The family of this 71-nucleotide sequence from Orthoflavivirus japonicum is "Flavivirus 3'UTR stem loop IV". About the family: Flavivirus 3' stem-loop IV (Flavivirus SLIV) is a conserved RNA that confers resistance to Xrn1 exonuclease. Rfam classes the family as a cis-regulatory element. The organism belongs to Orthoflavivirus japonicum, within Viruses.
[Rfam]
RNA sequence: CCAACGUCAGGCCACAAUUCUGUGCCACUCCGCUGGGGAGUGCGGCCUGCGUAGCCCCAGGAGGACUGGGU
Number, nucleotide and partner (000 for none) at each position: 001c000002c000003a000004a000005c000006g043007u000008c049009a048010g047011g046012c045013c024014a023015c022016a021017a000018u000019u000020c000021u016022g015023u014024g013025c000026c042027a041028c040029u039030c000031c037032g000033c000034u000035g000036g000037g031038g000039a029040g028041u027042g026043c006044g000045g012046c011047c010048u009049g008050c000051g000052u000053a000054g000055c000056c070057c069058c068059a067060g066061g000062a000063g000064g000065a000066c060067u059068g058069g057070g056071u000